The family of this 62-nucleotide sequence from Lates calcarifer is "Selenocysteine insertion sequence 1".
[Rfam]
RNA sequence: GUGUGUUAAUGAUGGUCUGUCUUUAAACUUGACAGAGCAAGCAGACUUGAUAUCCAACACUC
Number, nucleotide and partner (000 for none) at each position: 001g062002u000003g060004u059005g058006u000007u000008a000009a000010u000011g000012a000013u000014g047015g046016u045017c044018u043019g042020u041021c000022u039023u000024u000025a000026a000027a000028c037029u036030u035031g000032a000033c000034a000035g030036a029037g028038c000039a022040a000041g020042c019043a018044g017045a016046c015047u014048u000049g000050a000051u000052a000053u000054c000055c000056a000057a000058c005059a004060c003061u000062c001

The family's RNA type in Rfam is cis-regulatory element. It scores 36 bits against the family's covariance model. The base pairs follow the family's consensus structure, which is taken from published work. Taxonomically the source falls in Lates (Eukaryota, Vertebrata, Euteleostomi, Percomorphaceae).